Overview: Shown here is a 70-nucleotide sequence, a member of the family "Transposase-2 RNA".
RNA sequence: GAAGCGGGAAGCCGGCGUCAGCGGAUCGCUGGAUAAGACCGGCACCGCCGAUCCGUGAGGAUCGGCUGCU
Numbered sequence: 001g002a003a004g005c006g007g008g009a010a011g012c013c014g015g016c017g018u019c020a021g022c023g024g025a026u027c028g029c030u031g032g033a034u035a036a037g038a039c040c041g042g043c044a045c046c047g048c049c050g051a052u053c054c055g056u057g058a059g060g061a062u063c064g065g066c067u068g069c070u
Base pairs, nucleotide, nucleotide: 011043012042013041014040015039018032019031020030021029022028047066048065049064050063051062052061053060054059
The family's consensus secondary structure is taken from published work.
The sequence is in the family's curated seed alignment.